[Rfam]
RNA sequence: UGGCAACAAUGAUGAAGGAUGUGUAACUGUAACGUGUGGUUACCCCAUGGAGACACCAGUCCCUCUAAACUGACGUUGCCC
Number, nucleotide and partner (000 for none) at each position: 001u000002g080003g079004c078005a077006a076007c075008a000009a000010u000011g000012a000013u000014g000015a000016a000017g000018g000019a000020u000021g000022u000023g000024u000025a000026a000027c000028u000029g000030u000031a000032a000033c000034g000035u000036g000037u000038g000039g000040u000041u000042a000043c000044c000045c000046c000047a000048u000049g000050g000051a000052g000053a000054c000055a000056c000057c000058a000059g000060u000061c000062c000063c000064u000065c000066u000067a000068a000069a000070c000071u000072g000073a000074c000075g007076u006077u005078g004079c003080c002081c000
A member of the RNA family "Small nucleolar RNA SNORD127" from Zapornia atra, 81 nucleotides long. A search with the family's covariance model found it, with a score of 64 bits. By type it is a C/D-box small nucleolar RNA. The literature on the family includes a 2006 paper in Nucleic Acids Res by Yang et al., "snoSeeker: an advanced computational package for screening of guide and orphan snoRNA genes in the human genome". The organism belongs to Zapornia, within Eukaryota.